The family of this 291-nucleotide RNA sequence from Miniopterus pusillus bat coronavirus HKU8-related is "Alphacoronavirus 3'UTR".
The source organism's lineage runs through Viruses, Orthornavirae, Cornidovirineae, Orthocoronavirinae and Minunacovirus.
The match comes from Rfam's covariance-model search (186 bits).
The literature on the family includes a 2014 paper in Virus Res by Madhugiri et al., "RNA structure analysis of alphacoronavirus terminal genome regions".
The 3' UTR of alphacoronaviruses consists of two small hairpins (PK-SL2) which can form an alternate conformation (PK-SL1) where the loop region of the second hairpin interacts with the stem of the first hairpin. PK-SL2 has been confirmed in HCoV-229E and HCoV-NL63 by in vitro structure probing experiments. Downstream of this pseudoknot lies the hypervariable region (HVR), which is supported by many covarying basepairs in alphacoronaviruses.
The base pairs follow the family's consensus structure.
Clan: Coronavirus 3' UTR.

RNA sequence: AGAAGAUGUUGUUCGUAAGUAUACCCGCCCCAAGAUUGGUGCACAACCUGAAUUGUUGGUGUUGUAACUUGGUUUGGCGGCAGUCUUAUACACUAUGGUAAGCCUGUAAUUAAAUAGUAUAAGCAAUGUUUAAUUAUAUUACUAGCCUUAGAUGAAAAUUAGUUGCCUACAGUGCUACCCCUUUCGGAGUAAUUGAAAGAUCGCUUUGACGAGCCCAGUGUGGAAGAGCCGUCUGGAGUGCCUGUAGUGUUAUAAUUAGUAAUUGUAGAUAGGUGUAGUUUUGAUAGGGAU
Numbered sequence: 001a002g003a004a005g006a007u008g009u010u011g012u013u014c015g016u017a018a019g020u021a022u023a024c025c026c027g028c029c030c031c032a033a034g035a036u037u038g039g040u041g042c043a044c045a046a047c048c049u050g051a052a053u054u055g056u057u058g059g060u061g062u063u064g065u066a067a068c069u070u071g072g073u074u075u076g077g078c079g080g081c082a083g084u085c086u087u088a089u090a091c092a093c094u095a096u097g098g099u100a101a102g103c104c105u106g107u108a109a110u111u112a113a114a115u116a117g118u119a120u121a122a123g124c125a126a127u128g129u130u131u132a133a134u135u136a137u138a139u140u141a142c143u144a145g146c147c148u149u150a151g152a153u154g155a156a157a158a159u160u161a162g163u164u165g166c167c168u169a170c171a172g173u174g175c176u177a178c179c180c181c182u183u184u185c186g187g188a189g190u191a192a193u194u195g196a197a198a199g200a201u202c203g204c205u206u207u208g209a210c211g212a213g214c215c216c217a218g219u220g221u222g223g224a225a226g227a228g229c230c231g232u233c234u235g236g237a238g239u240g241c242c243u244g245u246a247g248u249g250u251u252a253u254a255a256u257u258a259g260u261a262a263u264u265g266u267a268g269a270u271a272g273g274u275g276u277a278g279u280u281u282u283g284a285u286a287g288g289g290a291u
Base pairs, nucleotide, nucleotide: 085102086101087100088099089098106137107136108135109134110133111132112131113130114129115128116127141279142278143277144276151264152263153262158256159255160254161253169245170244171243172242177239178238180236181235185231186230187229204213205212214223215222